[Rfam]
A member of the RNA family "MIR2912 microRNA precursor family" from Populus alba, 155 nucleotides long. The match comes from Rfam's covariance-model search (124 bits).

RNA sequence: UCUAAAACUCGAGAUAUGGGUUGAACACUGAACAGUGUCUGGGCUGCAGGACAGAUUCAGAUUUCUCCAUUGUUGCUAUAAUUUGAACUUGAAAAUGACCUUUUUGAAUUUUGCACUUCUAUAAAAGUUUUAGACCUAUGUCUUAGCUUUCCAUC
Number, nucleotide and partner (000 for none) at each position: 001u000002c000003u153004a000005a000006a150007a149008c146009u145010c000011g144012a143013g142014a141015u140016a139017u138018g137019g136020g135021u133022u132023g131024a130025a129026c000027a128028c127029u126030g000031a000032a000033c000034a000035g122036u121037g000038u000039c000040u000041g119042g118043g117044c000045u115046g114047c000048a112049g111050g110051a109052c000053a000054g105055a104056u000057u000058c000059a000060g099061a000062u098063u097064u000065c000066u000067c000068c000069a000070u000071u000072g088073u087074u086075g000076c000077u000078a000079u000080a000081a000082u000083u000084u000085g000086a074087a073088c072089u000090u000091g000092a000093a000094a000095a000096u000097g063098a062099c060100c000101u000102u000103u000104u055105u054106g000107a000108a000109u051110u050111u049112u048113g000114c046115a045116c000117u043118u042119c041120u000121a036122u035123a000124a000125a000126a029127g028128u027129u025130u024131u023132a022133g021134a000135c020136c019137u018138a017139u016140g015141u014142c013143u012144u011145a009146g008147c000148u000149u007150u006151c000152c000153a003154u000155c000

The family's consensus secondary structure was predicted with RNAalifold. The family has 2 seed sequences and 15,051 matches in Rfam 15.1.